[Rfam]
RNA sequence: GGGGACCUUCGGGGCCCUUCAUCCUCCGGGCCGGACGGCCCGCAUAACCCAGGGCGGGACGCACCCGCCCGACAACGACGGAAGACAGAAA
Dot-bracket structure: ((((.(((...))))))).........((...((.............................))..))......................
Background
Shown here is a 91-nucleotide sequence from Rhodosalinus halophilus, a member of the family "L2-Alphaproteobacteria ribosomal protein leader". By type it is a cis-regulatory leader.